[Rfam]
RNA sequence: CAGCUUCCUGCUUCAACAGUGCUUGGAAGGAAUGG
Numbered sequence: 001c002a003g004c005u006u007c008c009u010g011c012u013u014c015a016a017c018a019g020u021g022c023u024u025g026g027a028a029g030g031a032a033u034g035g
Stems, first nucleotide, its partner, number of pairs: 001035001003033001005032004012027005017021001
RNA: Iron response element I
Organism: Sus scrofa